Bacterial small subunit ribosomal RNA: a 347-nucleotide part of an RNA from Erysipelothrix inopinata. The match comes from Rfam's covariance-model search (1577 bits). The organism belongs to Erysipelothrix, within Bacteria.
RNA sequence: GGCGUAAAGGGAGCGCAGGCGGUUUAUUAAGUUUAUGGUGAAAGUUCGGGGCUUAACCCCGUGAUGCCAUAGAAACUGGUAGACUAGAGUGCAGGAGAGGUUAGUGGAAUUCCAUGUGUAGCGGUAAAAUGCGUAGAUAUAUGGAGGAACACCAGUGGCGAAGGCGGCUAACUGGCCUGUAACUGACGCUGAGGCUCGAAAGCGUGGGGAGCAAAUAGGAUUAGAUACCCUAGUAGUCCACGCCGUAAACGAUGGAUACUAAGUGUUGGAUAGAAUUCAGUGCUGUAGUUAACGCAAUAAGUAUCCCGCCUGGGGAGUAUGCGCGCAAGCGUAAAACUCAAAGGAAU
Numbered sequence: 001g002g003c004g005u006a007a008a009g010g011g012a013g014c015g016c017a018g019g020c021g022g023u024u025u026a027u028u029a030a031g032u033u034u035a036u037g038g039u040g041a042a043a044g045u046u047c048g049g050g051g052c053u054u055a056a057c058c059c060c061g062u063g064a065u066g067c068c069a070u071a072g073a074a075a076c077u078g079g080u081a082g083a084c085u086a087g088a089g090u091g092c093a094g095g096a097g098a099g100g101u102u103a104g105u106g107g108a109a110u111u112c113c114a115u116g117u118g119u120a121g122c123g124g125u126a127a128a129a130u131g132c133g134u135a136g137a138u139a140u141a142u143g144g145a146g147g148a149a150c151a152c153c154a155g156u157g158g159c160g161a162a163g164g165c166g167g168c169u170a171a172c173u174g175g176c177c178u179g180u181a182a183c184u185g186a187c188g189c190u191g192a193g194g195c196u197c198g199a200a201a202g203c204g205u206g207g208g209g210a211g212c213a214a215a216u217a218g219g220a221u222u223a224g225a226u227a228c229c230c231u232a233g234u235a236g237u238c239c240a241c242g243c244c245g246u247a248a249a250c251g252a253u254g255g256a257u258a259c260u261a262a263g264u265g266u267u268g269g270a271u272a273g274a275a276u277u278c279a280g281u282g283c284u285g286u287a288g289u290u291a292a293c294g295c296a297a298u299a300a301g302u303a304u305c306c307c308g309c310c311u312g313g314g315g316a317g318u319a320u321g322c323g324c325g326c327a328a329g330c331g332u333a334a335a336a337c338u339c340a341a342a343g344g345a346a347u
Stems, first nucleotide, its partner, number of pairs: 001310003009307001011197004016191001018190003022084007030077002032073009045063001047061005088184003091180005099173007106150001110146008121132003158165002202243006211237002216232004254306006262284010288295002312339003321332004
Pairs were carried over by alignment from the consensus structure, which is taken from published work.